[Rfam]
RNA sequence: AUGAGCUGAAGCGCUGCACCCUCUUAAGCGGCUUCGGCCCGACGGGCAGCACUUCUCCUCCCAGGCUGUCGGUCACUAUCGAAGCCCGGCGCAUCUCUCCCCCCCCCCGCGCCGGGCUUCUGCC
Numbered sequence: 001a002u003g004a005g006c007u008g009a010a011g012c013g014c015u016g017c018a019c020c021c022u023c024u025u026a027a028g029c030g031g032c033u034u035c036g037g038c039c040c041g042a043c044g045g046g047c048a049g050c051a052c053u054u055c056u057c058c059u060c061c062c063a064g065g066c067u068g069u070c071g072g073u074c075a076c077u078a079u080c081g082a083a084g085c086c087c088g089g090c091g092c093a094u095c096u097c098u099c100c101c102c103c104c105c106c107c108c109g110c111g112c113c114g115g116g117c118u119u120c121u122g123c124c
Stems, first nucleotide, its partner, number of pairs: 007036003011032002013029003041074003045070006082119011
A member of the RNA family "Alphaproteobacterial ar14" from Rhizobium etli, 124 nucleotides long. Rfam's curators write: Smr14C2 was renamed NfeR1 (Nodule Formation Efficiency RNA) highly expressed in salt stress and during the symbiotic interaction on legume roots. The base pairs follow the family's consensus structure. A reference for the family is Robledo et al. (2017), "A conserved alpha-proteobacterial small RNA contributes to osmoadaptation and symbiotic efficiency of rhizobia on legume roots", Environ Microbiol. The sequence is in the family's curated seed alignment.